[Rfam]
Rfam assigns this 67-nucleotide RNA sequence from Pectobacterium carotovorum to the family "int-alpA RNA". Taxonomically the source falls in Pectobacterium carotovorum subsp. carotovorum (Bacteria, Pseudomonadati, Gammaproteobacteria, Pectobacterium carotovorum). Pairs were carried over by alignment from the consensus structure, which is taken from published work.
RNA sequence: ACCUGAACUAGCCCAAUAGGGCGAAAAGCGGAAAGCCUUACCGCCUGUUCCGCUAGUUCUUUAGGGC
Numbered sequence: 001a002c003c004u005g006a007a008c009u010a011g012c013c014c015a016a017u018a019g020g021g022c023g024a025a026a027a028g029c030g031g032a033a034a035g036c037c038u039u040a041c042c043g044c045c046u047g048u049u050c051c052g053c054u055a056g057u058u059c060u061u062u063a064g065g066g067c
Stems, first nucleotide, its partner, number of pairs: 001054001003052001005050004011022004028044004035067006